[Rfam]
RNA: RNase MRP
Organism: Nylanderia fulva
RNA sequence: AAGUUCCCUGAGGUCACACCGCGGAGCCACAUUCGAGUUCUUGGUAACUCUUUCAACUCUGAGGAAGGUCCCUGGACCCGUGGCAGAAAGUGCCGUAGCUUUACCACUAUUAUCCUCCGCCAUCUCACGAAUAAAAAAGGGAAGCUUCGGCUGAUUUUUCGUGAUGUGUUGUGAGAGUAUUGGUCCAAGUAAAAGUAAUGUGUGUAAAAAUGGCGUUUUGUAUCUUUCACAGAAAGAUUUAAACGCAUUGAACUUAACAGGGCCUAUCAGAUCAGGAAACU
Numbered sequence: 001a002a003g004u005u006c007c008c009u010g011a012g013g014u015c016a017c018a019c020c021g022c023g024g025a026g027c028c029a030c031a032u033u034c035g036a037g038u039u040c041u042u043g044g045u046a047a048c049u050c051u052u053u054c055a056a057c058u059c060u061g062a063g064g065a066a067g068g069u070c071c072c073u074g075g076a077c078c079c080g081u082g083g084c085a086g087a088a089a090g091u092g093c094c095g096u097a098g099c100u101u102u103a104c105c106a107c108u109a110u111u112a113u114c115c116u117c118c119g120c121c122a123u124c125u126c127a128c129g130a131a132u133a134a135a136a137a138a139g140g141g142a143a144g145c146u147u148c149g150g151c152u153g154a155u156u157u158u159u160c161g162u163g164a165u166g167u168g169u170u171g172u173g174a175g176a177g178u179a180u181u182g183g184u185c186c187a188a189g190u191a192a193a194a195g196u197a198a199u200g201u202g203u204g205u206a207a208a209a210a211u212g213g214c215g216u217u218u219u220g221u222a223u224c225u226u227u228c229a230c231a232g233a234a235a236g237a238u239u240u241a242a243a244c245g246c247a248u249u250g251a252a253c254u255u256a257a258c259a260g261g262g263c264c265u266a267u268c269a270g271a272u273c274a275g276g277a278a279a280c281u
Stems, first nucleotide, its partner, number of pairs: 002281004007276005015204005022061005035050005066265003070262004082094004095107002110176002118171002121168003125164004134158004144151002207249002211245002